The record is a 114-nucleotide RNA sequence from Martelella sp. AD-3, which matches "rpsB sRNA" in Rfam. On this family, see Meyer et al., BMC Genomics 2009: "Identification of candidate structured RNAs in the marine organism 'Candidatus Pelagibacter ubique'". It scores 56 bits against the family's covariance model. The source organism's lineage runs through Bacteria, Pseudomonadati, Alphaproteobacteria, Aurantimonadaceae and Martelella.
RNA sequence: CACACGCAGGCCAUGGGAUGUUCCGGGAGAAAUCCGGUGCGUUCCGCCGGUGUCAGGCGUCAUUGACGUCUGGUCUCAGGUCUGCGGAGGUUCAACCGGAAAAGGAGAAAAGGC
Numbered sequence: 001c002a003c004a005c006g007c008a009g010g011c012c013a014u015g016g017g018a019u020g021u022u023c024c025g026g027g028a029g030a031a032a033u034c035c036g037g038u039g040c041g042u043u044c045c046g047c048c049g050g051u052g053u054c055a056g057g058c059g060u061c062a063u064u065g066a067c068g069u070c071u072g073g074u075c076u077c078a079g080g081u082c083u084g085c086g087g088a089g090g091u092u093c094a095a096c097c098g099g100a101a102a103a104g105g106a107g108a109a110a111a112g113g114c
Base pairs, nucleotide, nucleotide: 001089003087005086006085007084008083009082010081011080015045016044023037024036026035052074053073054072055071056070057069058068059067060066061065